The record is an 83-nucleotide RNA sequence from Iris missouriensis, which matches "Plastid-rpl20 3UTR RNA" in Rfam. Rfam describes the family as follows. Plastid rpl20 is a non-coding RNA (ncRNA) recognised in plastids. It was found in the three prime untranslated region (3UTR) of rpl20 gene, it presence in the 3UTR region sugest a role in transcript maduration. Rfam's curators put it in the seed alignment. For this family Rfam cites "Retrograde signaling in plants: A critical review focusing on the GUN pathway and beyond" (Richter et al., Plant Commun, 2023).
RNA sequence: AAAUUCCCGGAGUCCAGUCUCCGGGAAGAUAGAAUAAAAAUAAAUUAAGAUUAAGUAGUAGGAAUGAACGAACAUCUUUCAAU
Numbered sequence: 001a002a003a004u005u006c007c008c009g010g011a012g013u014c015c016a017g018u019c020u021c022c023g024g025g026a027a028g029a030u031a032g033a034a035u036a037a038a039a040a041u042a043a044a045u046u047a048a049g050a051u052u053a054a055g056u057a058g059u060a061g062g063a064a065u066g067a068a069c070g071a072a073c074a075u076c077u078u079u080c081a082a083u
Base pairs, nucleotide, nucleotide: 004027005026006025007024008023009022010021011020012019066079067078068077